RNA sequence: CAGUUGUUAAUAAGAUGUUUCUUCUUACAAACGUCUGAACUUAGGAACUCCAUGGUGAUUUCAGUGAAUUACUGAGAUAACUC
Numbered sequence: 001c002a003g004u005u006g007u008u009a010a011u012a013a014g015a016u017g018u019u020u021c022u023u024c025u026u027a028c029a030a031a032c033g034u035c036u037g038a039a040c041u042u043a044g045g046a047a048c049u050c051c052a053u054g055g056u057g058a059u060u061u062c063a064g065u066g067a068a069u070u071a072c073u074g075a076g077a078u079a080a081c082u083c
Base pairs, nucleotide, nucleotide: 002082003081004080005079006078007077008076

The family of this 83-nucleotide RNA sequence from Mesitornis unicolor is "Small nucleolar RNA SNORD72". NCBI's taxonomy places the organism under Eukaryota, Deuterostomia, Euteleostomi, Mesitornithidae, Mesitornis. The family's RNA type in Rfam is C/D-box small nucleolar RNA. A search with the family's covariance model found it, with a score of 46 bits. Rfam describes the family as follows. snoRNA HBII-240 belongs to the CD family of snoRNAs. It is the human orthologue of the mouse MBII-240 and is predicted to guide 2'O-ribose methylation of the large 28S rRNA at residue U4590. For this family Rfam cites "RNomics: an experimental approach that identifies 201 candidates for novel, small, non-messenger RNAs in mouse" (Huttenhofer et al., EMBO J, 2001). The family has 16 seed sequences and 726 matches in Rfam 15.1.